The family of this 103-nucleotide RNA is "Glycine riboswitch aptamer". It scores 38 bits against the family's covariance model.

RNA sequence: CAACUCUGGAGACAAGGCGGGCCGUAGGCCAUGCCUUACCGAAGGUGUACGACGCCGCGUUGCGGUGUCUCAGACUCUCAGGUUUCAGGACAGAGCGGGGAGG
Numbered sequence: 001c002a003a004c005u006c007u008g009g010a011g012a013c014a015a016g017g018c019g020g021g022c023c024g025u026a027g028g029c030c031a032u033g034c035c036u037u038a039c040c041g042a043a044g045g046u047g048u049a050c051g052a053c054g055c056c057g058c059g060u061u062g063c064g065g066u067g068u069c070u071c072a073g074a075c076u077c078u079c080a081g082g083u084u085u086c087a088g089g090a091c092a093g094a095g096c097g098g099g100g101a102g103g
Stems, first nucleotide, its partner, number of pairs: 001098001004095005015036004038083003041079002045077001047075001051071002

Record summary: Pairs were carried over by alignment from the consensus structure.